[Rfam]
RNA sequence: UCGUGGGUGACCACGAAUCUGAAGGAAGCUGGCGGCAAACAUUCGAGCCCACGAACAGAAACGGUAUACAAGGCAAGGCAUGGUGGGCGAUGUCGCACAACAGACAAAAGCCCUAUACUGUACGGAACCAUGCAGUGUAAAUACCGGGGCUACAUGAAUGGAAAGCGUAUAAC
Numbered sequence: 001u002c003g004u005g006g007g008u009g010a011c012c013a014c015g016a017a018u019c020u021g022a023a024g025g026a027a028g029c030u031g032g033c034g035g036c037a038a039a040c041a042u043u044c045g046a047g048c049c050c051a052c053g054a055a056c057a058g059a060a061a062c063g064g065u066a067u068a069c070a071a072g073g074c075a076a077g078g079c080a081u082g083g084u085g086g087g088c089g090a091u092g093u094c095g096c097a098c099a100a101c102a103g104a105c106a107a108a109a110g111c112c113c114u115a116u117a118c119u120g121u122a123c124g125g126a127a128c129c130a131u132g133c134a135g136u137g138u139a140a141a142u143a144c145c146g147g148g149g150c151u152a153c154a155u156g157a158a159u160g161g162a163a164a165g166c167g168u169a170u171a172a173c
Stems, first nucleotide, its partner, number of pairs: 001016006028173001030171002035166002040160006046151005062146006073138003078133006085113004091106004
The record is a 173-nucleotide sequence from [Flexibacter] sp. ATCC 35208, which matches "Group II catalytic intron D1-D4-3" in Rfam. Group II introns are found in rRNA, tRNA and mRNA of organelles in fungi, plants and protists, and also in mRNA in bacteria.